Shown here is an 87-nucleotide sequence from Cyclopterus lumpus, a member of the family "mir-7 microRNA precursor family". The source organism's lineage runs through Eukaryota, Chordata, Eurypterygia, Cottales and Cyclopterus. Rfam's curators write: This family represents the microRNA (miRNA) precursor mir-7.
[Rfam]
RNA sequence: UUGGUGGUGCUAAGUGGAAGACUAGUGAUUUUGUUGUGAAGCUGAUCAAAGAACAACAAGUCCCAGUCUACCUCUCAGCACAAGCAG
Number, nucleotide and partner (000 for none) at each position: 001u000002u086003g085004g000005u083006g000007g081008u080009g000010c078011u077012a000013a075014g074015u000016g072017g071018a000019a069020g068021a067022c066023u065024a000025g064026u000027g062028a061029u060030u059031u058032u000033g057034u056035u055036g054037u053038g000039a000040a000041g000042c000043u000044g000045a000046u000047c000048a000049a000050a000051g000052a000053a037054c036055a035056a034057c033058a031059a030060g029061u028062c027063c000064c025065a023066g022067u021068c020069u019070a000071c017072c016073u000074c014075u013076c000077a011078g010079c000080a008081c007082a000083a005084g000085c003086a002087g000